RNA: Acido-Lenti-1 RNA
RNA sequence: CCCAAUGCUGCGCAUUGGGCUGAAUUAACACGCCCUUUCAGGGCU
Numbered sequence: 001c002c003c004a005a006u007g008c009u010g011c012g013c014a015u016u017g018g019g020c021u022g023a024a025u026u027a028a029c030a031c032g033c034c035c036u037u038u039c040a041g042g043g044c045u
Stems, first nucleotide, its partner, number of pairs: 001019008032044005